[Rfam]
RNA sequence: GCAUGGGUUGGAUUUAUGGCAGGCCUGUCCCUCGGUCUCUCACAGUGCCCCACGCCAGAGCAAACUGUGCCUUGAACCGUUGCAAGGCCCCCCCGGGGGCUGCAAGAACUGAAGUGGGUUGCACAGUG
Numbered sequence: 001g002c003a004u005g006g007g008u009u010g011g012a013u014u015u016a017u018g019g020c021a022g023g024c025c026u027g028u029c030c031c032u033c034g035g036u037c038u039c040u041c042a043c044a045g046u047g048c049c050c051c052a053c054g055c056c057a058g059a060g061c062a063a064a065c066u067g068u069g070c071c072u073u074g075a076a077c078c079g080u081u082g083c084a085a086g087g088c089c090c091c092c093c094c095g096g097g098g099g100c101u102g103c104a105a106g107a108a109c110u111g112a113a114g115u116g117g118g119u120u121g122c123a124c125a126g127u128g
Stems, first nucleotide, its partner, number of pairs: 001055002004052001005050004014045002017042003021038003024034001068121001069119004078111002083106001086101005
Notes: Shown here is a 128-nucleotide sequence from Molossus molossus, a member of the family "Small nucleolar RNA SNORA42/SNORA80 family". About the family: The members of this family belong to the H/ACA class of snoRNAs that guide the sites of modification of uridines to pseudouridines. The source organism's lineage runs through Eukaryota, Deuterostomia, Dipnotetrapodomorpha, Yangochiroptera and Molossus. The literature on the family includes a 2006 paper in RNA by Schattner et al., "A computational screen for mammalian pseudouridylation guide H/ACA RNAs". Rfam 15.1 lists 1,535 matches to the family in 183 species. By type it is an H/ACA-box small nucleolar RNA.